[Rfam]
RNA sequence: UUAGUUAUUUCUCAGGCCAUAACAGAAGUACUCAUGGAGUGGCCAUGUCAGGUUUCAACGAACCUGCUAAUUUUGCU
Dot-bracket structure: ..............[[[[..(.(((((((.........))]]]]....(((((((....)))))))....))))).)
RNA: Mammalian CPEB3 ribozyme
Organism: Crocodylus porosus